[Rfam]
RNA sequence: AGUAUUACCCUAACUUGAGCAUUGGCUUGUCCUUGAAUCAGUAAGUGCUACUUGUUGGGGCAGUUUUA
Numbered sequence: 001a002g003u004a005u006u007a008c009c010c011u012a013a014c015u016u017g018a019g020c021a022u023u024g025g026c027u028u029g030u031c032c033u034u035g036a037a038u039c040a041g042u043a044a045g046u047g048c049u050a051c052u053u054g055u056u057g058g059g060g061c062a063g064u065u066u067u068a
Base pairs, nucleotide, nucleotide: 004064005063006062008060009059010058011057013055014054017051018049019048020047021046022045023044025042026041027040

A member of the RNA family "miR-430 microRNA precursor family" from Labrus bergylta, 68 nucleotides long. Clan: mir-290 clan. Rfam links the family to the GO terms miRNA-mediated post-transcriptional gene silencing and RISC complex. On this family, see Giraldez et al., Science 2005: "MicroRNAs regulate brain morphogenesis in zebrafish".